[Rfam]
RNA sequence: GACAAGGAUGGCUAUGACAUUAGCCUUGGAGUAAAAUCCUAAACCGCCCAAGAAUGGUGCUGAUAAUGUCUACCUAAUG
Numbered sequence: 001g002a003c004a005a006g007g008a009u010g011g012c013u014a015u016g017a018c019a020u021u022a023g024c025c026u027u028g029g030a031g032u033a034a035a036a037u038c039c040u041a042a043a044c045c046g047c048c049c050a051a052g053a054a055u056g057g058u059g060c061u062g063a064u065a066a067u068g069u070c071u072a073c074c075u076a077a078u079g
Base pairs, nucleotide, nucleotide: 010025011024012023013022016070017069018068019067020066021065046060047059049057
A member of the RNA family "Fluoride riboswitch aptamer (crcB RNA motif)", 79 nucleotides long. Pairs were carried over by alignment from the consensus structure, which is taken from published work. A reference for the family is Ren et al. (2012), "Fluoride ion encapsulation by Mg2+ ions and phosphates in a fluoride riboswitch", Nature.